A member of the RNA family "Glutamine riboswitch aptamer (glnA leader)", 76 nucleotides long. Rfam's curators put it in the seed alignment. A reference for the family is Ren et al. (2015), "Structural and Dynamic Basis for Low-Affinity, High-Selectivity Binding of L-Glutamine by the Glutamine Riboswitch", Cell Rep.
RNA sequence: AACGUUGAGCUUGACAGGUGUUCCGCAUCUGUCGUUCAGCCGGAAGUAGCCCCUCCGCAAGGCGAAGCAACGCUCC
Numbered sequence: 001a002a003c004g005u006u007g008a009g010c011u012u013g014a015c016a017g018g019u020g021u022u023c024c025g026c027a028u029c030u031g032u033c034g035u036u037c038a039g040c041c042g043g044a045a046g047u048a049g050c051c052c053c054u055c056c057g058c059a060a061g062g063c064g065a066a067g068c069a070a071c072g073c074u075c076c
Base pairs, nucleotide, nucleotide: 003072004071005070006069007068009040010039011038043073049063050062051061
Dot-bracket structure: ..(((((.(((..........................)))..[.....(((.........)))....)))))]...